[Rfam]
RNA: msiK RNA
Organism: Microbacterium sp. SYP-A9085
RNA sequence: GGUCCGCUUCCUAUCACUACGGAUCGUCCGGCACGUACCUGCCGGUGAAGGAGAAGAAU
Numbered sequence: 001g002g003u004c005c006g007c008u009u010c011c012u013a014u015c016a017c018u019a020c021g022g023a024u025c026g027u028c029c030g031g032c033a034c035g036u037a038c039c040u041g042c043c044g045g046u047g048a049a050g051g052a053g054a055a056g057a058a059u
Base pairs, nucleotide, nucleotide: 010051011050012049015047016046028045029044030043031042032041033040